[Rfam]
RNA: Small nucleolar RNA SNORD109A
Organism: Arabis alpina
RNA sequence: GAAGUAAAGAUGAAAAUAAUUGACUAAGGAUGAUUAACAAGUAACUAGAGAUGCCAAUUAAGUUC
Numbered sequence: 001g002a003a004g005u006a007a008a009g010a011u012g013a014a015a016a017u018a019a020u021u022g023a024c025u026a027a028g029g030a031u032g033a034u035u036a037a038c039a040a041g042u043a044a045c046u047a048g049a050g051a052u053g054c055c056a057a058u059u060a061a062g063u064u065c
Base pairs, nucleotide, nucleotide: 001065002064003063005061